[Rfam]
Rfam assigns this 116-nucleotide sequence to the family "drum RNA". Rfam classes the family as a small RNA. The sequence is in the family's curated seed alignment. Firmicutes, Bacteroidetes (1 example), Proteobacteria (2 examples), Spirochaetes (2 examples).
RNA sequence: AGGCGUGAAGCAGUGGGCUGGGUCGGUAUCAGUCGAUUGCAGAGCCGGACCGUGGGUUGUGCGGAAAUCACAAGCCGGAUAGGUGGCGGGAACGCUGCUGAAAGAAAACGCAAAAA
Numbered sequence: 001a002g003g004c005g006u007g008a009a010g011c012a013g014u015g016g017g018c019u020g021g022g023u024c025g026g027u028a029u030c031a032g033u034c035g036a037u038u039g040c041a042g043a044g045c046c047g048g049a050c051c052g053u054g055g056g057u058u059g060u061g062c063g064g065a066a067a068u069c070a071c072a073a074g075c076c077g078g079a080u081a082g083g084u085g086g087c088g089g090g091a092a093c094g095c096u097g098c099u100g101a102a103a104g105a106a107a108a109c110g111c112a113a114a115a116a
Base pairs, nucleotide, nucleotide: 002046003045004044010040011039012038013037014036016034017033018032019031020030023078024077025076026075061111062110063109082099083098084097085096086095087094088093